[Rfam]
RNA sequence: AAUUUGCAUCAAGAGUGAGAUUAAUUUCUCCUCCAACCUGCCAACUCCGGCAAGGUGGAAAAGUGAUGCGGUUAUUCAACAAUUAAAGGAGUAGAA
Number, nucleotide and partner (000 for none) at each position: 001a000002a000003u000004u000005u000006g069007c068008a067009u066010c065011a000012a000013g000014a000015g031016u000017g030018a029019g028020a027021u000022u000023a000024a000025u000026u000027u020028c019029u018030c017031c015032u059033c058034c057035a000036a000037c055038c054039u053040g051041c050042c049043a000044a092045c091046u090047c089048c088049g042050g041051c040052a000053a039054g038055g037056u000057g034058g033059a032060a000061a000062a000063g000064u000065g010066a009067u008068g007069c006070g000071g080072u079073u078074a000075u000076u000077c000078a073079a072080c071081a000082a000083u000084u000085a000086a000087a000088g048089g047090a046091g045092u044093a000094g000095a000096a000

This 96-nucleotide RNA belongs to the Rfam family "SAM-I/IV (S-adenosyl methionine) riboswitch aptamer". Rfam 15.1 lists 567 matches to the family in 508 species.